[Rfam]
Rfam assigns this 353-nucleotide RNA sequence from Ruminococcaceae bacterium KH2T8 to the family "Bacterial RNase P class A".
RNA sequence: CGAGCAGACCGAGACAAUCGCGGGCACCAAUGGCGAAAGCCGGUGCGUGAGGAAAGUCCGGGCUCCACAGGACAGGGUGCCGGCUAACGGCCGGUGAAGGCGACUUUAAGGAAAGUGCAACAGAAAAGAAAACCGCCUAUUCUUCGGAAUGGGUAAGGAUGAAAAGGCGAGGUAAGAGCUCACCGGCGGUAUGGAGACAUAUCGGCCUUGUAAACCCCACUCGGAGCAACGUCGUGGAAAGGCAUCAACCGUGGUCCGCGGGCCUUGAGGGGACGGCUUAAGACGGCGGGCAACCGUCGUAUUAGAUAGAUGAUUGUCAACUACAGAACCCGGCUUACCGGUCUGGUCGGUUA
Numbered sequence: 001c002g003a004g005c006a007g008a009c010c011g012a013g014a015c016a017a018u019c020g021c022g023g024g025c026a027c028c029a030a031u032g033g034c035g036a037a038a039g040c041c042g043g044u045g046c047g048u049g050a051g052g053a054a055a056g057u058c059c060g061g062g063c064u065c066c067a068c069a070g071g072a073c074a075g076g077g078u079g080c081c082g083g084c085u086a087a088c089g090g091c092c093g094g095u096g097a098a099g100g101c102g103a104c105u106u107u108a109a110g111g112a113a114a115g116u117g118c119a120a121c122a123g124a125a126a127a128g129a130a131a132a133c134c135g136c137c138u139a140u141u142c143u144u145c146g147g148a149a150u151g152g153g154u155a156a157g158g159a160u161g162a163a164a165a166g167g168c169g170a171g172g173u174a175a176g177a178g179c180u181c182a183c184c185g186g187c188g189g190u191a192u193g194g195a196g197a198c199a200u201a202u203c204g205g206c207c208u209u210g211u212a213a214a215c216c217c218c219a220c221u222c223g224g225a226g227c228a229a230c231g232u233c234g235u236g237g238a239a240a241g242g243c244a245u246c247a248a249c250c251g252u253g254g255u256c257c258g259c260g261g262g263c264c265u266u267g268a269g270g271g272g273a274c275g276g277c278u279u280a281a282g283a284c285g286g287c288g289g290g291c292a293a294c295c296g297u298c299g300u301a302u303u304a305g306a307u308a309g310a311u312g313a314u315u316g317u318c319a320a321c322u323a324c325a326g327a328a329c330c331c332g333g334c335u336u337a338c339c340g341g342u343c344u345g346g347u348c349g350g351u352u353a
Stems, first nucleotide, its partner, number of pairs: 001349003005345006011338001013318007021049002024046005054336003058333005063226004070257004075222005080094005095109001096107004110217002115215002117211003133158002135154008166184002169181003186206001187204007230275004242263001249261004283300007